[Rfam]
Nucleotides: 093
Base pairs, nucleotide, nucleotide: 003091004090036051037050038049039048
Number, partner (000 for none) and nucleotide at each position: 001000c002000g003091g004090c005000u006000g007000u008000g009000a010000u011000g012000a013000u014000a015000g016000g017000a018000g019000a020000g021000u022000u023000c024000u025000g026000a027000c028000c029000u030000g031000g032000u033000a034000c035000u036051g037050u038049g039048g040000c041000u042000c043000c044000g045000u046000g047000u048039u049038u050037g051036c052000a053000g054000u055000g056000a057000c058000c059000g060000g061000g062000g063000u064000g065000u066000g067000a068000u069000u070000g071000u072000g073000c074000c075000u076000a077000a078000u079000c080000u081000u082000c083000u084000c085000u086000c087000u088000g089000a090004g091003c092000u093000g
The family of this 93-nucleotide sequence from Atractosteus spatula is "Z30 small nucleolar RNA". Taxonomically the source falls in Atractosteus (Eukaryota, Bilateria, Chordata, Actinopterygii). By type it is a C/D-box small nucleolar RNA. On this family, see Galardi et al., Mol Cell Biol 2002: "Purified box C/D snoRNPs are able to reproduce site-specific 2'-O-methylation of target RNA in vitro".